[Rfam]
RNA sequence: GAGCAAGGCAUCUAGGGUUCCGAUUUAGGCAUGCAAGGGCAGACAGAGUCUGGUUUUGCGUUUACUAAGUGACUGGUCCAAGAGGUGCAGCCGAGUAGGCGCUAUAGCCUGUUCUAGCUCGGUUCACGGAGGGAUAAAAGCCCGGGAGAU
Numbered sequence: 001g002a003g004c005a006a007g008g009c010a011u012c013u014a015g016g017g018u019u020c021c022g023a024u025u026u027a028g029g030c031a032u033g034c035a036a037g038g039g040c041a042g043a044c045a046g047a048g049u050c051u052g053g054u055u056u057u058g059c060g061u062u063u064a065c066u067a068a069g070u071g072a073c074u075g076g077u078c079c080a081a082g083a084g085g086u087g088c089a090g091c092c093g094a095g096u097a098g099g100c101g102c103u104a105u106a107g108c109c110u111g112u113u114c115u116a117g118c119u120c121g122g123u124u125c126a127c128g129g130a131g132g133g134a135u136a137a138a139a140g141c142c143c144g145g146g147a148g149a150u
Stems, first nucleotide, its partner, number of pairs: 008088005015079002020076002022073001023070006090123007125145001127148001131143003
RNA: Guanidine-I riboswitch aptamer
Organism: Nodosilinea sp. LEGE 07088